[Rfam]
RNA sequence: UUCUUAUUGGAUGAUGACUGUCAUGUGUCAUGAUCUAAUUGGCGAAGAACAAUGCAUUUCAUCUUCGUCAAUCAGAUCAUGACACGUGACAAUCAUCAUCC
Numbered sequence: 001u002u003c004u005u006a007u008u009g010g011a012u013g014a015u016g017a018c019u020g021u022c023a024u025g026u027g028u029c030a031u032g033a034u035c036u037a038a039u040u041g042g043c044g045a046a047g048a049a050c051a052a053u054g055c056a057u058u059u060c061a062u063c064u065u066c067g068u069c070a071a072u073c074a075g076a077u078c079a080u081g082a083c084a085c086g087u088g089a090c091a092a093u094c095a096u097c098a099u100c101c
Base pairs, nucleotide, nucleotide: 020090021089022088023087025085026084029081030080031079033077034076035075036074038072039071040070
A member of the RNA family "MIR1520 microRNA precursor family" from Glycine max, 101 nucleotides long. Rfam 15.1 lists 1,934 matches to the family in 15 species. Gene Ontology terms of the family: miRNA-mediated post-transcriptional gene silencing and RISC complex.